[Rfam]
RNA sequence: UGGUAGAUGCACCCUGGUAAAGUCCUAGAGCUAAACUCUGGGGCUUUUUUUA
Numbered sequence: 001u002g003g004u005a006g007a008u009g010c011a012c013c014c015u016g017g018u019a020a021a022g023u024c025c026u027a028g029a030g031c032u033a034a035a036c037u038c039u040g041g042g043g044c045u046u047u048u049u050u051u052a
Stems, first nucleotide, its partner, number of pairs: 002013003022044009